RNA sequence: AAAAAGGGCUUCUGCUGUGAGUGGCAGACAUAGGGCAUCAUUUGCUCUUUGUGCCAGAAUCAACAUCAAGAGAUUUCAGAAGCACAAUUUUUUGGUACUUGGGUAGCUGAUGAUCAUUGGUCCUGGAGCCCUU
Numbered sequence: 001a002a003a004a005a006g007g008g009c010u011u012c013u014g015c016u017g018u019g020a021g022u023g024g025c026a027g028a029c030a031u032a033g034g035g036c037a038u039c040a041u042u043u044g045c046u047c048u049u050u051g052u053g054c055c056a057g058a059a060u061c062a063a064c065a066u067c068a069a070g071a072g073a074u075u076u077c078a079g080a081a082g083c084a085c086a087a088u089u090u091u092u093u094g095g096u097a098c099u100u101g102g103g104u105a106g107c108u109g110a111u112g113a114u115c116a117u118u119g120g121u122c123c124u125g126g127a128g129c130c131c132u133u
Stems, first nucleotide, its partner, number of pairs: 008083005013026005027054001028052003032048006057076005101131004107126003112122004

Annotation: Rfam assigns this 133-nucleotide RNA sequence from Theropithecus gelada to the family "U11 spliceosomal RNA". Rfam classes the family as a spliceosomal small nuclear RNA. On this family, see Schneider et al., Proc Natl Acad Sci U S A 2004: "Identification of an evolutionarily divergent U11 small nuclear ribonucleoprotein particle in Drosophila". Rfam 15.1 lists 2,595 matches to the family in 1,202 species. The match comes from Rfam's covariance-model search (84 bits). Its Rfam clan is "U1 clan". Its family is annotated with U11 snRNP, pre-mRNA 5'-splice site binding and mRNA 5'-splice site recognition in the Gene Ontology. Lineage of the source: Eukaryota > Chordata > Teleostomi > Dipnotetrapodomorpha > Theropithecus.